[Rfam]
RNA sequence: UUGCAAGAUCAAGGCCAUAGCAGAAGUGCUCACAGCAUGGCCCUCUCAGAUUCCAAUGAUCUGUGAAUUUUGCU
Numbered sequence: 001u002u003g004c005a006a007g008a009u010c011a012a013g014g015c016c017a018u019a020g021c022a023g024a025a026g027u028g029c030u031c032a033c034a035g036c037a038u039g040g041c042c043c044u045c046u047c048a049g050a051u052u053c054c055a056a057u058g059a060u061c062u063g064u065g066a067a068u069u070u071u072g073c074u
Stems, first nucleotide, its partner, number of pairs: 013042004019074007026038003047063005053058001
Dot-bracket structure: ............[[[[..((((((((((.......)))]]]]....(((((.(....))))))....)))))))

This 74-nucleotide RNA sequence from Alligator mississippiensis belongs to the Rfam family "Mammalian CPEB3 ribozyme".
Gene Ontology term of the family: RNA nuclease activity.